[Rfam]
RNA sequence: ACAGUACAAACUGAGCAGGCCAAAGGCGUUUACUGCCUUGGGAGCCGGGCCGCGGGCGGCGGCAGCAGACAGAAGCGUCUGUGGGACAGUG
Numbered sequence: 001a002c003a004g005u006a007c008a009a010a011c012u013g014a015g016c017a018g019g020c021c022a023a024a025g026g027c028g029u030u031u032a033c034u035g036c037c038u039u040g041g042g043a044g045c046c047g048g049g050c051c052g053c054g055g056g057c058g059g060c061g062g063c064a065g066c067a068g069a070c071a072g073a074a075g076c077g078u079c080u081g082u083g084g085g086a087c088a089g090u091g
Stems, first nucleotide, its partner, number of pairs: 010090004016085001018046003023039004049063005065082006
A member of the RNA family "NiCo (Nickel/Cobalt) riboswitch aptamer" from Enterocloster bolteae, 91 nucleotides long. On this family, see Furukawa et al., Mol Cell 2015: "Bacterial riboswitches cooperatively bind Ni(2+) or Co(2+) ions and control expression of heavy metal transporters". It is one of the family's seed sequences. The family's consensus secondary structure is taken from published work. Its family is annotated with metal ion homeostasis and cobalt ion binding in the Gene Ontology.